[Rfam]
Annotation:
The family of this 82-nucleotide RNA sequence from Albula glossodonta is "mir-26 microRNA precursor family". Pairs were carried over by alignment from the consensus structure, which was predicted with RNAalifold. It scores 80 bits against the family's covariance model.

RNA sequence: CCUCCGCCUGGUUCAAGUAAUCCAGGAUAGGCUGUUUUCCCACCAACACGGCCUAUUCUCGAUUACUUGUUUCAGGAAGUGG
Numbered sequence: 001c002c003u004c005c006g007c008c009u010g011g012u013u014c015a016a017g018u019a020a021u022c023c024a025g026g027a028u029a030g031g032c033u034g035u036u037u038u039c040c041c042a043c044c045a046a047c048a049c050g051g052c053c054u055a056u057u058c059u060c061g062a063u064u065a066c067u068u069g070u071u072u073c074a075g076g077a078a079g080u081g082g
Stems, first nucleotide, its partner, number of pairs: 002081001004079001007076005014069009024059010